[Rfam]
RNA sequence: CAGAAAUGGGAGCUGCUUUCAGACCAAAACAAUAUCAUUUCCUAGAUGUUAUCUCUUCAUAUUGCUUUGGACUGAAGGGAGCUCCUAUUUCUU
Numbered sequence: 001c002a003g004a005a006a007u008g009g010g011a012g013c014u015g016c017u018u019u020c021a022g023a024c025c026a027a028a029a030c031a032a033u034a035u036c037a038u039u040u041c042c043u044a045g046a047u048g049u050u051a052u053c054u055c056u057u058c059a060u061a062u063u064g065c066u067u068u069g070g071a072c073u074g075a076a077g078g079g080a081g082c083u084c085c086u087a088u089u090u091c092u093u
Base pairs, nucleotide, nucleotide: 007087008086009085010084011083012082013081014080016078017077018076021073022072024070025069026068027067028066